This 174-nucleotide RNA sequence from Streptomyces sp. NBRC 110611 belongs to the Rfam family "Streptomyces RNA 1601". It is annotated as a small RNA. Lineage of the source: Bacteria > Bacillati > Actinomycetota > Kitasatosporales > Streptomyces. About the family: Identified by deep sequencing of transcriptome at the end of exponential growth phase. Appears longer on northern blot than sequencing transcript.
[Rfam]
Nucleotides: 174
Base pairs, nucleotide, nucleotide: 004091005090006089007088008087009086012027028084029083030082031081032080034060037057038056039055040054041052042051061079062078063077064076066075067074068073099167100166101165102164103163104162105159106158107157114154115153116152117150118149119148120147121146123144124143125142126141127140
Number, partner (000 for none) and nucleotide at each position: 001000u002000c003000c004091g005090a006089c007088c008087g009086g010000c011000c012027g013000g014000a015000c016000a017000c018000g019000u020000a021000u022000g023000u024000g025000a026000a027012c028084g029083g030082c031081c032080c033000a034060c035000a036000a037057g038056u039055g040054g041052a042051g043000g044000c045000u046000c047000c048000g049000a050000u051042c052041u053000c054040c055039c056038a057037c058000c059000c060034g061079g062078c063077c064076g065000a066075c067074c068073c069000u070000c071000a072000g073068g074067g075066g076064c077063g078062g079061c080032g081031g082030g083029u084028c085000a086009c087008u088007g089006g090005u091004c092000a093000g094000g095000c096000u097000g098000c099167g100166c101165c102164c103163c104162g105159c106158g107157g108000a109000g110000a111000c112000u113000u114154c115153g116152c117150g118149g119148c120147g121146g122000u123144g124143c125142u126141c127140c128000c129000g130000a131000u132000c133000u134000c135000g136000u137000u138000c139000u140127g141126g142125a143124g144123c145000c146121c147120c148119g149118c150117c151000u152116g153115u154114g155000u156000c157107c158106c159105g160000u161000c162104c163103g164102g165101g166100g167099c168000g169000u170000u171000u172000u173000c174000c